[Rfam]
RNA sequence: UACUCUUUAAUUUAAAUCCGCACACGUUUCGUCACAUUCAGCUGGGUGCUCCGACAGGGGUUGUUGAAUGGGGGGCGUGGAGGUUCAAC
Numbered sequence: 001u002a003c004u005c006u007u008u009a010a011u012u013u014a015a016a017u018c019c020g021c022a023c024a025c026g027u028u029u030c031g032u033c034a035c036a037u038u039c040a041g042c043u044g045g046g047u048g049c050u051c052c053g054a055c056a057g058g059g060g061u062u063g064u065u066g067a068a069u070g071g072g073g074g075g076c077g078u079g080g081a082g083g084u085u086c087a088a089c
Base pairs, nucleotide, nucleotide: 023079024078025077026076027075028074029073030072035070036069037068038067039066040065041064042063048061049060050059051058052057
Description:
A member of the RNA family "t44 RNA" from Oleiphilus sp. HI0079, 89 nucleotides long. The family's consensus secondary structure was predicted with LocARNA. About the family: This family consists of a number of bacterial RNA genes of between 135 and 170 bases in length. For this family Rfam cites "Transcriptome analysis of Escherichia coli using high-density oligonucleotide probe arrays" (Tjaden et al., Nucleic Acids Res, 2002). The match comes from Rfam's covariance-model search (73 bits).